Background: RAGATH-8 RNA: a 273-nucleotide RNA sequence. Pairs were carried over by alignment from the consensus structure, which is taken from published work. Gene Ontology term of the family: catalytic activity.

[Rfam]
RNA sequence: GAUACAAAAGCAAGCAGGAAGAACGGAUGAAGCGAGAGGGCGGCACGCAAGUGACAUGGCGGUCAGGCUGUACGAUAACAGACAGAGCGUGUGCAGAAUAAACAUGAUCCGUCAAAGUAGUUGAAGAAAGCAGGAACAUCAGGACAAGAAAGCAAAGUGUUCAUACUACUGGAAGAAAAUGAACAGGUUGAGCCGAUCAACACUUUACUCCUUAAACAAGAAGAUGUUAAGCGGAAGAAUCAAUCGCGCGAGAUGACACAGCACUUCUGUUUC
Number, nucleotide and partner (000 for none) at each position: 001g273002a272003u000004a270005c269006a268007a000008a266009a265010g264011c000012a000013a000014g000015c000016a000017g000018g000019a000020a000021g000022a000023a112024c111025g110026g109027a108028u107029g000030a000031a000032g000033c000034g000035a000036g000037a000038g000039g000040g000041c000042g000043g092044c091045a090046c089047g088048c087049a000050a000051g000052u065053g064054a063055c062056a000057u000058g000059g000060c000061g000062g055063u054064c053065a052066g000067g000068c081069u080070g079071u078072a000073c000074g000075a000076u000077a000078a071079c070080a069081g068082a000083c000084a000085g000086a000087g048088c047089g046090u045091g044092u043093g000094c000095a000096g000097a000098a000099u000100a000101a000102a000103c000104a000105u000106g000107a028108u027109c026110c025111g024112u023113c000114a000115a000116a000117g000118u000119a000120g244121u243122u242123g241124a240125a000126g000127a000128a000129a000130g232131c231132a000133g000134g000135a228136a227137c226138a225139u224140c223141a212142g211143g210144a209145c000146a000147a000148g000149a206150a205151a204152g203153c000154a000155a000156a000157g000158u185159g184160u183161u182162c181163a180164u179165a000166c000167u000168a000169c000170u000171g000172g000173a000174a000175g000176a000177a000178a000179a164180u163181g162182a161183a160184c159185a158186g000187g201188u200189u199190g198191a197192g000193c000194c000195g000196a000197u191198c190199a189200a188201c187202a000203c152204u151205u150206u149207a000208c000209u144210c143211c142212u141213u000214a000215a000216a000217c000218a000219a000220g000221a000222a000223g140224a139225u138226g137227u136228u135229a000230a000231g131232c130233g000234g000235a000236a000237g000238a000239a000240u124241c123242a122243a121244u120245c000246g000247c000248g000249c000250g000251a000252g000253a000254u000255g000256a000257c000258a000259c000260a000261g000262c000263a000264c010265u009266u008267c000268u006269g005270u004271u000272u002273c001